[Rfam]
Shown here is a 111-nucleotide sequence from Caenorhabditis brenneri, a member of the family "SL2 RNA". Its family is annotated with mRNA trans splicing, via spliceosome in the Gene Ontology. From the family's description: This family represents SL2 RNA. SL2 RNA is involved in trans splicing in lower eukaryotes. Trans-splicing is a form of RNA processing. The acquisition of a spliced leader from a SL RNA is a intra-molecular reaction which precisely joins exons derived from separately transcribed RNAs.
RNA sequence: GGUUUUAACCCCAGUUACCAAGGUAAUUCGGAGUUCCGACCUUUUCGAAAGAAGAGUGUCGAACAACUUUAAUUUUUGGAAACGCUCUUCCGGGGUAUCCGGUUGGGCAGC
Numbered sequence: 001g002g003u004u005u006u007a008a009c010c011c012c013a014g015u016u017a018c019c020a021a022g023g024u025a026a027u028u029c030g031g032a033g034u035u036c037c038g039a040c041c042u043u044u045u046c047g048a049a050a051g052a053a054g055a056g057u058g059u060c061g062a063a064c065a066a067c068u069u070u071a072a073u074u075u076u077u078g079g080a081a082a083c084g085c086u087c088u089u090c091c092g093g094g095g096u097a098u099c100c101g102g103u104u105g106g107g108c109a110g111c
Stems, first nucleotide, its partner, number of pairs: 007035002009031002013028002016025003037061004041056003045052002086109001088107003092103001094100002

The family's RNA type in Rfam is non-coding RNA gene. The match comes from Rfam's covariance-model search (90 bits). Its Rfam clan is "SL clan". Pairs were carried over by alignment from the consensus structure, which is taken from published work.